[Rfam]
The record is an 89-nucleotide sequence from Eubacterium sp. CAG:161, which matches "GA-cis RNA" in Rfam. It is annotated as a small RNA. The source organism's lineage runs through Bacteria, Bacillati, Clostridia, Eubacteriaceae and Eubacterium. The match comes from Rfam's covariance-model search (86 bits).

RNA sequence: AGUAGGAGGAAACAAAAUGAACGAAGUUCAUUUUUCAGGAUGUUUCCGACGAAAUGCCGCUGACCCGAAGGGAGGGGGCACUACAUAUU
Number, nucleotide and partner (000 for none) at each position: 001a000002g000003u000004a000005g000006g000007a000008g047009g046010a045011a044012a043013c042014a000015a000016a032017a031018u030019g029020a028021a027022c000023g000024a000025a000026g000027u021028u020029c019030a018031u017032u016033u000034u000035u000036c000037a000038g000039g000040a000041u000042g013043u012044u011045u010046c009047c008048g000049a000050c000051g000052a000053a000054a000055u000056g079057c078058c077059g000060c075061u074062g000063a000064c071065c070066c000067g000068a000069a000070g065071g064072g000073a000074g061075g060076g000077g058078g057079c056080a000081c000082u000083a000084c000085a000086u000087a000088u000089u000